The family of this 83-nucleotide RNA sequence from Mesorhizobium sp. YM1C-6-2 is "chrB-a RNA".

RNA sequence: CGCAUGGGGAUAGCGAUCUCCCCACGAGGCGACAGCCCAAGAAUCGCGUCCAUGCAUCCCGGUUAACGGAAGGACGCGUUAUG
Numbered sequence: 001c002g003c004a005u006g007g008g009g010a011u012a013g014c015g016a017u018c019u020c021c022c023c024a025c026g027a028g029g030c031g032a033c034a035g036c037c038c039a040a041g042a043a044u045c046g047c048g049u050c051c052a053u054g055c056a057u058c059c060c061g062g063u064u065a066a067c068g069g070a071a072g073g074a075c076g077c078g079u080u081a082u083g
Stems, first nucleotide, its partner, number of pairs: 005024006046077006

Description: A search with the family's covariance model found it, with a score of 84 bits. By type it is a cis-regulatory element.